[Rfam]
RNA: TPP riboswitch aptamer (THI element)
Organism: Austwickia chelonae
RNA sequence: GGCCACGACGCGGGGUGCCGGGGCACAUCGGGGUGGAUCGUCGCCCCCCGGCUGAGAACAGACCCGUCGAACCUGCUCUAGUUCGUUCUAGCGAAGGGACGUCACCAUGUCCUCCU
Numbered sequence: 001g002g003c004c005a006c007g008a009c010g011c012g013g014g015g016u017g018c019c020g021g022g023g024c025a026c027a028u029c030g031g032g033g034u035g036g037a038u039c040g041u042c043g044c045c046c047c048c049c050g051g052c053u054g055a056g057a058a059c060a061g062a063c064c065c066g067u068c069g070a071a072c073c074u075g076c077u078c079u080a081g082u083u084c085g086u087u088c089u090a091g092c093g094a095a096g097g098g099a100c101g102u103c104a105c106c107a108u109g110u111c112c113u114c115c116u
Stems, first nucleotide, its partner, number of pairs: 007103004011066004016060001017052007072097003078091004
Dot-bracket structure: ......((((((((.((((((((......................))))))).......)..)))).....(((...((((......))))...)))..)))).............